The record is a 107-nucleotide RNA from Pueribacillus theae, which matches "ylbH leader" in Rfam. Lineage of the source: Bacteria > Bacillota > Caryophanales > Bacillaceae > Pueribacillus. Rfam's curators write: This family is a putative regulatory RNA structure that is found upstream of the ylbH gene in B. subtilis and related low GC Gram-positive bacteria. Rfam links the family to the GO term regulation of gene expression.
RNA sequence: GUAAAAAAAUACCUGCAGGUAAGUCCUGCAGGAGCCUCUAUCCAUUGAGGCAAUGGGAGAGGAGAAACCGGAUGAAAGCUUAUGGGGAAAGUAAGCUUUCACCGAUG
Numbered sequence: 001g002u003a004a005a006a007a008a009a010u011a012c013c014u015g016c017a018g019g020u021a022a023g024u025c026c027u028g029c030a031g032g033a034g035c036c037u038c039u040a041u042c043c044a045u046u047g048a049g050g051c052a053a054u055g056g057g058a059g060a061g062g063a064g065a066a067a068c069c070g071g072a073u074g075a076a077a078g079c080u081u082a083u084g085g086g087g088a089a090a091g092u093a094a095g096c097u098u099u100c101a102c103c104g105a106u107g
Stems, first nucleotide, its partner, number of pairs: 012032008037057005069104003074100009